Rfam assigns this 95-nucleotide sequence from Duganella sp. Root198D2 to the family "Glycine riboswitch aptamer". Clan: Glycine riboswitch clan. Rfam describes the family as follows. This family represents the bacterial glycine riboswitch.
[Rfam]
RNA sequence: GUCGCGCGAUCGGGAGAGUUUGUCCCACCCAUGGACAACGCCGAAGGAGCAAGCCGCCCCCGGAAUCUCUCAGGCCCAAGGACCGGUCGCGUGUU
Numbered sequence: 001g002u003c004g005c006g007c008g009a010u011c012g013g014g015a016g017a018g019u020u021u022g023u024c025c026c027a028c029c030c031a032u033g034g035a036c037a038a039c040g041c042c043g044a045a046g047g048a049g050c051a052a053g054c055c056g057c058c059c060c061c062g063g064a065a066u067c068u069c070u071c072a073g074g075c076c077c078a079a080g081g082a083c084c085g086g087u088c089g090c091g092u093g094u095u
Base pairs, nucleotide, nucleotide: 006090007089008088009087010086011085012084013083020038021037022036023035024034025033040075041074042073043071044070047069048068049067054062